[Rfam]
The record is a 511-nucleotide part of an RNA from Oreochromis aureus, which matches "Eukaryotic large subunit ribosomal RNA" in Rfam.
The organism belongs to Oreochromis, within Eukaryota.
RNA sequence: CCCUCCGAAGUUUCCCUCAGGAUAGCUGGCGCUCGAGUCUCGCAGUUUUAUCUGGUAAAGCGAAUGAUUAGAGGUCUUGGGGCCGAAACGAUCUCAACCUAUUCUCAAACUUUAAAUGGGUAAGAAGCCCGGCUCGCUGGCUUGGAGCCGGGCGUGGAAUGCGAGCUGCCCAGUGGGCCACUUUUGGUAAGCAGAACUGGCGCUGCGGGAUGAACCGAACGCCGGGUUAAGGCGCCCGAUGCCGACGCUCAUCAGACCCCAGAAAAGGUGUUGGUUGAUAUAGACAGCAGGACGGUGGCCAUGGAAGUUGGAAUCCGCUAAGGAGUGUGUAACAACUCACCUGCCGAAUCAACUAGCCCUGAAAAUGGAUGGCGCUGGCGCGUCGGGCCCAUACCCGGCCGUCGCCGGCAAUAGGAGCCGCGAGGGCUACGCCGCGACGAGUAGGAGGGCCGCCGCGGUGAGCACGGAAGCCUAGGGCGCGAGCCCGGGUGGAGCCGCCGCGGGUGCAGAU
Numbered sequence: 001c002c003c004u005c006c007g008a009a010g011u012u013u014c015c016c017u018c019a020g021g022a023u024a025g026c027u028g029g030c031g032c033u034c035g036a037g038u039c040u041c042g043c044a045g046u047u048u049u050a051u052c053u054g055g056u057a058a059a060g061c062g063a064a065u066g067a068u069u070a071g072a073g074g075u076c077u078u079g080g081g082g083c084c085g086a087a088a089c090g091a092u093c094u095c096a097a098c099c100u101a102u103u104c105u106c107a108a109a110c111u112u113u114a115a116a117u118g119g120g121u122a123a124g125a126a127g128c129c130c131g132g133c134u135c136g137c138u139g140g141c142u143u144g145g146a147g148c149c150g151g152g153c154g155u156g157g158a159a160u161g162c163g164a165g166c167u168g169c170c171c172a173g174u175g176g177g178c179c180a181c182u183u184u185u186g187g188u189a190a191g192c193a194g195a196a197c198u199g200g201c202g203c204u205g206c207g208g209g210a211u212g213a214a215c216c217g218a219a220c221g222c223c224g225g226g227u228u229a230a231g232g233c234g235c236c237c238g239a240u241g242c243c244g245a246c247g248c249u250c251a252u253c254a255g256a257c258c259c260c261a262g263a264a265a266a267g268g269u270g271u272u273g274g275u276u277g278a279u280a281u282a283g284a285c286a287g288c289a290g291g292a293c294g295g296u297g298g299c300c301a302u303g304g305a306a307g308u309u310g311g312a313a314u315c316c317g318c319u320a321a322g323g324a325g326u327g328u329g330u331a332a333c334a335a336c337u338c339a340c341c342u343g344c345c346g347a348a349u350c351a352a353c354u355a356g357c358c359c360u361g362a363a364a365a366u367g368g369a370u371g372g373c374g375c376u377g378g379c380g381c382g383u384c385g386g387g388c389c390c391a392u393a394c395c396c397g398g399c400c401g402u403c404g405c406c407g408g409c410a411a412u413a414g415g416a417g418c419c420g421c422g423a424g425g426g427c428u429a430c431g432c433c434g435c436g437a438c439g440a441g442u443a444g445g446a447g448g449g450c451c452g453c454c455g456c457g458g459u460g461a462g463c464a465c466g467g468a469a470g471c472c473u474a475g476g477g478c479g480c481g482a483g484c485c486c487g488g489g490u491g492g493a494g495c496c497g498c499c500g501c502g503g504g505u506g507c508a509g510a511u
Stems, first nucleotide, its partner, number of pairs: 001449006011024001013022003028170004033165001046125008058113001059111002065107003070102001072100003077097006084090001127153009177201004182196005206217003221399005227393001231389003240386001242385001246382003266360003270357010287344005293317003299311002318322001323338001327336002400439006407433003451506001453503008462495002470490002476485003
Dot-bracket structure: ((((((....(.(((....))).)...((((.(............((((((((....(((....(((..(.(((..((((((.(.....).))))))))).)..)))..)).)....)))))))).(((((((((.........)))))))))...........).))))......((((.(((((.....))))).))))....(((......)))...(((((.(...(((......(.(...(((.................(((.((((((((((.......(((((.(((...((.........))...)))(...)(...((......)).).)))))...)))))))))))))...................)))..)))))...).)))))((((((.(((.....................)))))))))....)))))).(.((((((((.((......((....(((....)))...))...))))))))))..).....